[Rfam]
RNA: Ribosomal protein L20 leader
Organism: Enterococcus pallens
RNA sequence: AAAUGAAAGCAGAAGCACCCGCUUCUCGCCUUACGCGAACAUCUCGCUGGGCUAGAUAGUUAAUGACUCGUCUGUAGGGAUGAGUAUGGCUAAGUUGCGGGUUCAGUAUGAACUCGUUUUUUUUGUGCCGA
Numbered sequence: 001a002a003a004u005g006a007a008a009g010c011a012g013a014a015g016c017a018c019c020c021g022c023u024u025c026u027c028g029c030c031u032u033a034c035g036c037g038a039a040c041a042u043c044u045c046g047c048u049g050g051g052c053u054a055g056a057u058a059g060u061u062a063a064u065g066a067c068u069c070g071u072c073u074g075u076a077g078g079g080a081u082g083a084g085u086a087u088g089g090c091u092a093a094g095u096u097g098c099g100g101g102u103u104c105a106g107u108a109u110g111a112a113c114u115c116g117u118u119u120u121u122u123u124u125g126u127g128c129c130g131a
Stems, first nucleotide, its partner, number of pairs: 011026006028052003035047004097117009